[Rfam]
RNA: Alphaproteobacteria transfer-messenger RNA
Nucleotides: 361
Base pairs, nucleotide, nucleotide: 040055041054042053043052044051059200060199061198062197063196069193070192073189074188075187084179085178086177088176089175090174094110095109096108097107098106111161112160113159114158115157116156117155201216202215203214204213206227207226208225210224211223212222327342328341329340330339333358334357335356336355337354338353
Number, partner (000 for none) and nucleotide at each position: 001000c002000c003000c004000c005000u006000u007000u008000c009000a010000u011000c012000g013000c014000a015000g016000g017000c018000c019000g020000g021000c022000c023000c024000c025000g026000c027000c028000u029000a030000u031000a032000u033000u034000c035000a036000u037000g038000g039000g040055g041054c042053c043052g044051g045000c046000g047000c048000a049000a050000g051044c052043c053042g054041g055040c056000u057000a058000u059200g060199g061198c062197g063196a064000u065000a066000a067000a068000u069193g070192g071000u072000u073189g074188u075187c076000g077000u078000a079000a080000u081000a082000a083000g084179c085178c086177u087000u088176u089175c090174g091000g092000a093000c094110c095109c096108g097107g098106g099000g100000g101000c102000a103000g104000u105000a106098c107097c108096c109095g110094g111161c112160g113159c114158c115157u116156c117155c118000a119000c120000c121000a122000g123000a124000g125000c126000c127000c128000g129000u130000g131000a132000a133000g134000c135000g136000c137000a138000c139000g140000c141000g142000c143000g144000c145000g146000g147000g148000c149000u150000c151000c152000g153000g154000c155117g156116g157115g158114g159113g160112c161111g162000a163000a164000c165000c166000a167000g168000g169000a170000u171000c172000g173000a174090c175089g176088a177086g178085g179084g180000u181000g182000u183000a184000a185000a186000g187075g188074g189073c190000u191000u192070u193069c194000u195000u196063u197062c198061g199060c200059u201216c202215g203214g204213c205000a206227u207226g208225g209000u210224u211223c212222c213204g214203c215202c216201g217000a218000u219000a220000u221000c222212g223211g224210g225208c226207c227206g228000a229000c230000c231000u232000a233000u234000a235000g236000u237000u238000g239000c240000g241000a242000a243000u244000g245000a246000c247000a248000a249000c250000u251000a252000u253000g254000c255000u256000c257000c258000g259000g260000u261000u262000g263000c264000c265000g266000u267000u268000g269000c270000c271000g272000c273000g274000u275000g276000a277000g278000c279000g280000g281000u282000a283000a284000a285000g286000g287000u288000a289000c290000c291000g292000a293000a294000a295000u296000a297000a298000a299000a300000g301000u302000c303000c304000u305000a306000c307000c308000g309000g310000g311000u312000a313000g314000c315000a316000c317000u318000g319000g320000c321000u322000a323000g324000g325000c326000g327342g328341g329340g330339u331000u332000c333358g334357g335356a336355g337354g338353c339330a340329c341328c342327u343000g344000g345000c346000a347000a348000c349000a350000g351000a352000a353338g354337c355336c356335u357334c358333c359000a360000c361000u